[Rfam]
RNA sequence: ACUUUAUCUGCAGCAAGGAUUUACCAAAGCUCAUAAAAUAUGUUGCUGUCAUCACCUUUGUCUCUGCUCAUCAGAGAUCGGAGUUGAAAAACAGCACAACAUAU
Number, nucleotide and partner (000 for none) at each position: 001a000002c000003u000004u000005u000006a000007u000008c000009u000010g000011c000012a000013g000014c000015a000016a000017g000018g000019a000020u000021u000022u000023a000024c000025c000026a000027a000028a000029g000030c000031u000032c000033a000034u000035a000036a000037a000038a000039u000040a000041u098042g097043u000044u096045g095046c094047u093048g092049u000050c000051a000052u000053c000054a085055c000056c083057u082058u081059u080060g000061u077062c076063u075064c074065u000066g000067c000068u000069c000070a000071u000072c000073a000074g064075a063076g062077a061078u000079c000080g059081g058082a057083g056084u000085u054086g000087a000088a000089a000090a000091a000092c048093a047094g046095c045096a044097c042098a041099a000100c000101a000102u000103a000104u000
RNA: Small nucleolar RNA snoR97